The record is a 127-nucleotide RNA sequence from Molossus molossus, which matches "Small nucleolar RNA SNORA61" in Rfam.
Its family is annotated with RNA processing and nucleolus in the Gene Ontology.
The family's consensus secondary structure was predicted with PFOLD.
ACA61 is a member of the H/ACA class of snoRNA that guide the sites of modification of uridines to pseudouridines.
The family's RNA type in Rfam is H/ACA-box small nucleolar RNA.

RNA sequence: GCCCUCAGGUUCCCUUUCCCAUCAGAUCUGAACAUCGGUCUUGGUGGUCCUAAAAGGAAGAAAAGUAAUACUAGAUUCAUGGUGCUUAUAAUCUGUUCUACAGCAUGUGGGGUAGUUUCAAACCAAG
Numbered sequence: 001g002c003c004c005u006c007a008g009g010u011u012c013c014c015u016u017u018c019c020c021a022u023c024a025g026a027u028c029u030g031a032a033c034a035u036c037g038g039u040c041u042u043g044g045u046g047g048u049c050c051u052a053a054a055a056g057g058a059a060g061a062a063a064a065g066u067a068a069u070a071c072u073a074g075a076u077u078c079a080u081g082g083u084g085c086u087u088a089u090a091a092u093c094u095g096u097u098c099u100a101c102a103g104c105a106u107g108u109g110g111g112g113u114a115g116u117u118u119c120a121a122a123c124c125a126a127g
Base pairs, nucleotide, nucleotide: 003060005058006057019047020046021045022044023043025040026039027038028037071115072114073113076110077109087105089103